Purine riboswitch aptamer: a 100-nucleotide RNA sequence from Photobacterium proteolyticum.
It scores 76 bits against the family's covariance model.
The literature on the family includes a 2003 paper in Cell by Mandal et al., "Riboswitches Control Fundamental Biochemical Pathways in Bacillus subtilis and Other Bacteria".
The family's consensus secondary structure is taken from published work.
Clan: Purine riboswitches.
Taxonomically the source falls in Photobacterium (Bacteria, Pseudomonadati, Vibrionales, Vibrionaceae).
About the family: Riboswitches are metabolite binding domains within certain messenger RNAs that serve as precision sensors for their corresponding targets.

RNA sequence: GACUCCUCAGCCAACUUGCUUCGUAUAAUCCCAAUGAUAUGGUUUGGGAGUUUCUACCAAGAGCCUUAAACUCUUGAUUAUGAAGUCUGUAACUUUAUGU
Numbered sequence: 001g002a003c004u005c006c007u008c009a010g011c012c013a014a015c016u017u018g019c020u021u022c023g024u025a026u027a028a029u030c031c032c033a034a035u036g037a038u039a040u041g042g043u044u045u046g047g048g049a050g051u052u053u054c055u056a057c058c059a060a061g062a063g064c065c066u067u068a069a070a071c072u073c074u075u076g077a078u079u080a081u082g083a084a085g086u087c088u089g090u091a092a093c094u095u096u097a098u099g100u
Stems, first nucleotide, its partner, number of pairs: 018086008029049006058076006